Shown here is a 98-nucleotide RNA, a member of the family "Plastid-rps12 3UTR RNA". The family has 1,299 seed sequences and 1,710 matches in Rfam 15.1. Plastid rpl20 is a non-coding RNA (ncRNA) recognised in plastids. It was found in the three prime untranslated region (3UTR) of rps12 gene, its 3UTR location sugest a role in transcript maduration. By type it is a cis-regulatory element.
[Rfam]
RNA sequence: UUUCCGUUGGUGCAUAUUCAAUUUUGAAUUCAAUCAAGAUGAGAAAAAAUUCCUCAUUGGUAACAAAUGGUUAUCCAUUAAGCGAGGAAAAUCCUAUU
Numbered sequence: 001u002u003u004c005c006g007u008u009g010g011u012g013c014a015u016a017u018u019c020a021a022u023u024u025u026g027a028a029u030u031c032a033a034u035c036a037a038g039a040u041g042a043g044a045a046a047a048a049a050u051u052c053c054u055c056a057u058u059g060g061u062a063a064c065a066a067a068u069g070g071u072u073a074u075c076c077a078u079u080a081a082g083c084g085a086g087g088a089a090a091a092u093c094c095u096a097u098u
Base pairs, nucleotide, nucleotide: 007021008020009019010018052087053086054085055084056078057077059075060074061073062072063071064070